Rfam assigns this 91-nucleotide RNA to the family "Plastid-rps12 3UTR RNA". It is annotated as a cis-regulatory element. On this family, see Richter et al., Plant Commun 2023: "Retrograde signaling in plants: A critical review focusing on the GUN pathway and beyond". The base pairs follow the family's consensus structure, which was predicted with LocARNA. Plastid rpl20 is a non-coding RNA (ncRNA) recognised in plastids. It was found in the three prime untranslated region (3UTR) of rps12 gene, its 3UTR location sugest a role in transcript maduration.
RNA sequence: GGUUUCCGUUGGUGCAAAUCCAAUCACCUGAAUUUAAAAUGAGAAACAAUUCUUCAUUGGUAGCGAAUGGUUAUCCAUUAAGCGAAGGAUA
Dot-bracket structure: ........((((.......))))............................((((((.((((((.....)))))).)).....))))....